[Rfam]
A member of the RNA family "L17 ribosomal protein downstream element" from Vagococcus fluvialis, 76 nucleotides long.
RNA sequence: AGAGUGUUAUGAUGUUGGAAAAUUUAUUUUUUCCGAGUCUAGCUCGGUGCUAAUCCUCUGACUUUUAGUCGGAGGA
Numbered sequence: 001a002g003a004g005u006g007u008u009a010u011g012a013u014g015u016u017g018g019a020a021a022a023u024u025u026a027u028u029u030u031u032u033c034c035g036a037g038u039c040u041a042g043c044u045c046g047g048u049g050c051u052a053a054u055c056c057u058c059u060g061a062c063u064u065u066u067a068g069u070c071g072g073a074g075g076a
Stems, first nucleotide, its partner, number of pairs: 002045004011039003017034006054076009
It scores 69 bits against the family's covariance model.
Rfam classes the family as a cis-regulatory element.